A member of the RNA family "mir-3151 microRNA precursor family" from Homo sapiens, 76 nucleotides long. Lineage of the source: Eukaryota > Tetrapoda > Euarchontoglires > Haplorrhini > Homo. The family's consensus secondary structure was predicted with RNAalifold.
RNA sequence: GGGGUGAUGGGUGGGGCAAUGGGAUCAGGUGCCUCAAAGGGCAUCCCACCUGAUCCCACAGCCCACCUGUCACCCC
Numbered sequence: 001g002g003g004g005u006g007a008u009g010g011g012u013g014g015g016g017c018a019a020u021g022g023g024a025u026c027a028g029g030u031g032c033c034u035c036a037a038a039g040g041g042c043a044u045c046c047c048a049c050c051u052g053a054u055c056c057c058a059c060a061g062c063c064c065a066c067c068u069g070u071c072a073c074c075c076c
Base pairs, nucleotide, nucleotide: 001076002075003074004073005072006071007070008069009068010067011066012065014064015063016062017061020058021057022056023055024054025053026052027051028050029049030048031042032041033040034039